[Rfam]
RNA sequence: UUAACUUUGAUAUGUCUGGUAUUCUUGGGUUCAGUGCUAACCAGAACUAUUAGACAUAUCGAAGGUCGG
Numbered sequence: 001u002u003a004a005c006u007u008u009g010a011u012a013u014g015u016c017u018g019g020u021a022u023u024c025u026u027g028g029g030u031u032c033a034g035u036g037c038u039a040a041c042c043a044g045a046a047c048u049a050u051u052a053g054a055c056a057u058a059u060c061g062a063a064g065g066u067c068g069g
Base pairs, nucleotide, nucleotide: 008061009060010059011058012057013056014055015054016053017052018051019050020049021048022046028042029041030040031039
Shown here is a 69-nucleotide RNA sequence from Necator americanus, a member of the family "mir-50 microRNA precursor family".
Taxonomically the source falls in Necator (Eukaryota, Protostomia, Rhabditida, Rhabditina).
The base pairs follow the family's consensus structure, which was predicted with RNAalifold.
Clan: mir-50 clan.